[Rfam]
RNA sequence: GCGGGCCUGGCUUACUACUCCAUGGUAGCGAACUGGGCGAAGGUCCUG
Dot-bracket structure: .....(((.(((((....(.(......).)...)))))..))).....

Hepatitis C virus stem-loop SL1412 RNA: a 48-nucleotide RNA from Orthohepacivirus hominis. Rfam classes the family as a cis-regulatory element. On this family, see Pirakitikulr et al., Mol Cell 2016: "The Coding Region of the HCV Genome Contains a Network of Regulatory RNA Structures". The base pairs follow the family's consensus structure, which was predicted with RNAfold. Rfam's curators put it in the seed alignment.